[Rfam]
RNA sequence: UGUUAAGCGCUUACUAUGUGCCAAGCACUAUUCGAACAGUGCUUGGCACAUAGUAAGCGCUUAACA
Dot-bracket structure: (((((((((((((((((((((((((((((........)))))))))))))))))))))))))))))

The family of this 66-nucleotide RNA from Ornithorhynchus anatinus is "mir-3116 microRNA precursor family".
The source organism's lineage runs through Eukaryota, Dipnotetrapodomorpha, Monotremata, Ornithorhynchidae and Ornithorhynchus.
The family's consensus secondary structure was predicted with RNAalifold.
Gene Ontology terms of the family: miRNA-mediated post-transcriptional gene silencing and RISC complex.